[Rfam]
RNA sequence: UACUUAUGUAGAGGAGCGACUAUUAUAAGUAUUUUUUCUGAGUGGAUAACGAUGAGGAAAAAGGAAAGGAAUCGUUGCCGAAAUCAAUUAAAAGUCGUUUUAAUUGGUUGGGAGCGUUUUCGAAAGAAACGUUACUGUCAUAGUCUUUUUAACAACUAUGGAGCGCUACUGGUUAG
Dot-bracket structure: .......((((....(((((.(((.......((((((((................))))))))......))).)))))...((((((((((((....))))))))))))((.((((((((.....)))))))).)).(((((((..........)))))))....)))).......

The record is a 176-nucleotide RNA sequence from Avibacterium volantium, which matches "Lysine riboswitch aptamer" in Rfam.
The literature on the family includes a 2003 paper in Nucleic Acids Res by Rodionov et al., "Regulation of lysine biosynthesis and transport genes in bacteria: yet another RNA riboswitch?".
The match comes from Rfam's covariance-model search (143 bits).
Pairs were carried over by alignment from the consensus structure, which is taken from published work.